[Rfam]
RNA sequence: GCGAGGUGACGAUAUUAAUUCAAUGCUCAUAAAAUCCACUGAGAUAAACUGUGAUGUCUCUUGAAUCUCGACAGGUUCUGAUCGC
Numbered sequence: 001g002c003g004a005g006g007u008g009a010c011g012a013u014a015u016u017a018a019u020u021c022a023a024u025g026c027u028c029a030u031a032a033a034a035u036c037c038a039c040u041g042a043g044a045u046a047a048a049c050u051g052u053g054a055u056g057u058c059u060c061u062u063g064a065a066u067c068u069c070g071a072c073a074g075g076u077u078c079u080g081a082u083c084g085c
Stems, first nucleotide, its partner, number of pairs: 001085004
Small nucleolar RNA snoR14: an 85-nucleotide sequence from Acer yangbiense. A reference for the family is Brown et al. (2001), "Multiple snoRNA gene clusters from Arabidopsis", RNA. The family is grouped with related families in Rfam's "SNORD110 clan". NCBI's taxonomy places the organism under Eukaryota, Tracheophyta, Sapindaceae, Hippocastanoideae, Acer. The pairing is the family consensus, mapped onto this sequence. Its family is annotated with nucleolus and RNA processing in the Gene Ontology. A search with the family's covariance model found it, with a score of 74 bits.